A member of the RNA family "c-di-AMP riboswitch aptamer (ydaO/yuaA leader)" from Streptomyces sp. RB17, 183 nucleotides long.
The organism belongs to Streptomyces, within Bacteria.

RNA sequence: CAAGACCCAUCGACGAACUCAUUCGUACGGCAGGAGCGGGGGACCCAGGUAAGUCCGCCGGGCCGGUCGGCACACGCCGCACCGGAACGGCUAGGGGUGAAGCCGUGCCUUCACACGAAGGCGCGGCCGGGCACCUCCCCGCCCGAACCCGACAGCUCACCUCGCAGGCGCCGGAGAGGACUU
Numbered sequence: 001c002a003a004g005a006c007c008c009a010u011c012g013a014c015g016a017a018c019u020c021a022u023u024c025g026u027a028c029g030g031c032a033g034g035a036g037c038g039g040g041g042g043a044c045c046c047a048g049g050u051a052a053g054u055c056c057g058c059c060g061g062g063c064c065g066g067u068c069g070g071c072a073c074a075c076g077c078c079g080c081a082c083c084g085g086a087a088c089g090g091c092u093a094g095g096g097g098u099g100a101a102g103c104c105g106u107g108c109c110u111u112c113a114c115a116c117g118a119a120g121g122c123g124c125g126g127c128c129g130g131g132c133a134c135c136u137c138c139c140c141g142c143c144c145g146a147a148c149c150c151g152a153c154a155g156c157u158c159a160c161c162u163c164g165c166a167g168g169c170g171c172c173g174g175a176g177a178g179g180a181c182u183u
Base pairs, nucleotide, nucleotide: 001167006034007033036165037164038163039162040161041160046094095150096149097148103126104125105124106123107122108121109120110119129144130143131142132141